RNA sequence: CUGUGAGGACGACCUCACCGCAUCCUGCGACCAUCCGGGGACGGCCCCA
Dot-bracket structure: (.((((((....)))))).)................((((....)))).

Source information
A member of the RNA family "Guanidine-II riboswitch aptamer (mini-ykkC)" from Geopseudomonas guangdongensis, 49 nucleotides long. Its family is annotated with regulation of gene expression in the Gene Ontology. The base pairs follow the family's consensus structure, which is taken from published work.